[Rfam]
A member of the RNA family "Small nucleolar RNA Z105" from Morella rubra, 70 nucleotides long. The family's consensus secondary structure was predicted with CMfinder. The family has 11 seed sequences and 621 matches in Rfam 15.1. A search with the family's covariance model found it, with a score of 52 bits.
RNA sequence: CAGGCAUAAUGAUGAAGAAGUAAAAAUCUGAUAUUUAUUGGGAUGAACAAACACCUCCUACUCAUACUGA
Numbered sequence: 001c002a003g004g005c006a007u008a009a010u011g012a013u014g015a016a017g018a019a020g021u022a023a024a025a026a027u028c029u030g031a032u033a034u035u036u037a038u039u040g041g042g043a044u045g046a047a048c049a050a051a052c053a054c055c056u057c058c059u060a061c062u063c064a065u066a067c068u069g070a
Base pairs, nucleotide, nucleotide: 006065007064009062027046028045
Lineage of the source: Eukaryota > Euphyllophyta > Mesangiospermae > Myricaceae > Morella.
Its family is annotated with RNA processing and nucleolus in the Gene Ontology.
For this family Rfam cites "The high diversity of snoRNAs in plants: identification and comparative study of 120 snoRNA genes from Oryza sativa" (Chen et al., Nucleic Acids Res, 2003).